[Rfam]
RNA sequence: CCAUCAUCACCAUCAUCCUGACUAGUCUUUCAGGCGAUGUGUGCUGGGAGACGAUUAGGAUCUUCCAGUGGUGCAGAACGCAAAAGUAGCCCCCGGAAGAUUCACUUUCGGGGGCUUUUUUUU
Numbered sequence: 001c002c003a004u005c006a007u008c009a010c011c012a013u014c015a016u017c018c019u020g021a022c023u024a025g026u027c028u029u030u031c032a033g034g035c036g037a038u039g040u041g042u043g044c045u046g047g048g049a050g051a052c053g054a055u056u057a058g059g060a061u062c063u064u065c066c067a068g069u070g071g072u073g074c075a076g077a078a079c080g081c082a083a084a085a086g087u088a089g090c091c092c093c094c095g096g097a098a099g100a101u102u103c104a105c106u107u108u109c110g111g112g113g114g115c116u117u118u119u120u121u122u123u
Base pairs, nucleotide, nucleotide: 008043009042010041011039012038013037014036017034018033019032020031021030044068045067046066047065048064049063050062051061084120085119086118088116089115090114091113092112093111094110095109096108097107098106099105
RNA: Histidine operon leader